[Rfam]
RNA sequence: UGUUUCAAGGACUUAGCCAUGCAUGCCUCAGAAUCACUGCAUUGCAGGAAUCUGCGCAUGGCUCAUUACAUCAGACGUAAUCUGCCGCCAAAAUUUUGCGGUCUCCGCAUUACUGGAUAACUUGGCGAAACGCCAAGCUAAUACAUGAACCAAUCGGACGCUCUCUUUUUCUAUGUCGCGGCUUGUGUUUACGCACUUGUCGUGGCGAUGGGACGUCCAGCGAAUGAAUGAAAUUAGAACCAACGCCUCCACCCGGGGGCAGUAACACUCAGACGUGUUGACUCAAUUCAUUCUGUGCGAAAGCCGAGCCUUGUUGCUCGGCGUCUACUGACGAACAACUGCCCUAUCAGCCAGUGAUGGCCGUGUAGUGGACUGCCAUGGCGUUGACGGGAGCGGGGGAUUAGGGUUCGAUUCCGGAGAGGGAGCCUGAGAAAUAGCUACCACUUCUACGGAGGGCAGCAGGCGCGCAAAUUGCCCAAUGUCGAAAAAAUACGAUGAGGCAGCGAAAAGAAAUAGAGCCGACCGUGCCCUAGUGCAUGGUUGUUUUCAAUGGGGGAUACUCAAACCCAUCCAAUAUCGAGUAACAA
Numbered sequence: 001u002g003u004u005u006c007a008a009g010g011a012c013u014u015a016g017c018c019a020u021g022c023a024u025g026c027c028u029c030a031g032a033a034u035c036a037c038u039g040c041a042u043u044g045c046a047g048g049a050a051u052c053u054g055c056g057c058a059u060g061g062c063u064c065a066u067u068a069c070a071u072c073a074g075a076c077g078u079a080a081u082c083u084g085c086c087g088c089c090a091a092a093a094u095u096u097u098g099c100g101g102u103c104u105c106c107g108c109a110u111u112a113c114u115g116g117a118u119a120a121c122u123u124g125g126c127g128a129a130a131c132g133c134c135a136a137g138c139u140a141a142u143a144c145a146u147g148a149a150c151c152a153a154u155c156g157g158a159c160g161c162u163c164u165c166u167u168u169u170u171c172u173a174u175g176u177c178g179c180g181g182c183u184u185g186u187g188u189u190u191a192c193g194c195a196c197u198u199g200u201c202g203u204g205g206c207g208a209u210g211g212g213a214c215g216u217c218c219a220g221c222g223a224a225u226g227a228a229u230g231a232a233a234u235u236a237g238a239a240c241c242a243a244c245g246c247c248u249c250c251a252c253c254c255g256g257g258g259g260c261a262g263u264a265a266c267a268c269u270c271a272g273a274c275g276u277g278u279u280g281a282c283u284c285a286a287u288u289c290a291u292u293c294u295g296u297g298c299g300a301a302a303g304c305c306g307a308g309c310c311u312u313g314u315u316g317c318u319c320g321g322c323g324u325c326u327a328c329u330g331a332c333g334a335a336c337a338a339c340u341g342c343c344c345u346a347u348c349a350g351c352c353a354g355u356g357a358u359g360g361c362c363g364u365g366u367a368g369u370g371g372a373c374u375g376c377c378a379u380g381g382c383g384u385u386g387a388c389g390g391g392a393g394c395g396g397g398g399g400a401u402u403a404g405g406g407u408u409c410g411a412u413u414c415c416g417g418a419g420a421g422g423g424a425g426c427c428u429g430a431g432a433a434a435u436a437g438c439u440a441c442c443a444c445u446u447c448u449a450c451g452g453a454g455g456g457c458a459g460c461a462g463g464c465g466c467g468c469a470a471a472u473u474g475c476c477c478a479a480u481g482u483c484g485a486a487a488a489a490a491u492a493c494g495a496u497g498a499g500g501c502a503g504c505g506a507a508a509a510g511a512a513a514u515a516g517a518g519c520c521g522a523c524c525g526u527g528c529c530c531u532a533g534u535g536c537a538u539g540g541u542u543g544u545u546u547u548c549a550a551u552g553g554g555g556g557a558u559a560c561u562c563a564a565a566c567c568c569a570u571c572c573a574a575u576a577u578c579g580a581g582u583a584a585c586a587a
Base pairs, nucleotide, nucleotide: 003511004510005509009504010466016464017463018462020461021460022459025055026054030053031052032051037047038046062419063418064417072341073340074339077336078335081334082333087329090326114145115144121137122136123135124134125133126132156218157217158216159215162212163211224291225290226289227288228287229286238279239278240277261269262268263267303322304321305320306319307318308317309316343391344390345389350382351381352380357379358378359377360376361375363373364372394416395415396414397413398409399408400407401406421442422441424439425438426437444455445454446453447452472502474501475500476499480497481496482495483494484493517547518546520543521542522541523540524539525538526537527536528535554578555577556575558574

A member of the RNA family "Eukaryotic small subunit ribosomal RNA" from Trypanosoma brucei, 587 nucleotides of a longer RNA. Rfam links the family to the GO terms ribosome and structural constituent of ribosome.